Shown here is a 100-nucleotide sequence from Clostridium uliginosum, a member of the family "Purine riboswitch aptamer". It scores 81 bits against the family's covariance model. Lineage of the source: Bacteria > Bacillati > Clostridia > Eubacteriales > Clostridium. Riboswitches are metabolite binding domains within certain messenger RNAs that serve as precision sensors for their corresponding targets. Pairs were carried over by alignment from the consensus structure, which is taken from published work.
RNA sequence: AAAAUUAAUGAAAAAAUUACUUGUAUAACCUCAAGAAUAUGGUUUGAGGGUCUCUACCAGGAACCGUAAAAUCCUGAUUACAAAGAAAAUUGAUGAGUCU
Numbered sequence: 001a002a003a004a005u006u007a008a009u010g011a012a013a014a015a016a017u018u019a020c021u022u023g024u025a026u027a028a029c030c031u032c033a034a035g036a037a038u039a040u041g042g043u044u045u046g047a048g049g050g051u052c053u054c055u056a057c058c059a060g061g062a063a064c065c066g067u068a069a070a071a072u073c074c075u076g077a078u079u080a081c082a083a084a085g086a087a088a089a090u091u092g093a094u095g096a097g098u099c100u
Base pairs, nucleotide, nucleotide: 018086021083022082023081024080025079029049030048031047032046033045034044035043058076059075060074061073062072